RNA sequence: CACAUGGCGAGAACCAUGUGAAUCAAGGAGUGUAGUGAUUCACGCGGUUCUCG
Numbered sequence: 001c002a003c004a005u006g007g008c009g010a011g012a013a014c015c016a017u018g019u020g021a022a023u024c025a026a027g028g029a030g031u032g033u034a035g036u037g038a039u040u041c042a043c044g045c046g047g048u049u050c051u052c053g
Stems, first nucleotide, its partner, number of pairs: 008053008017044009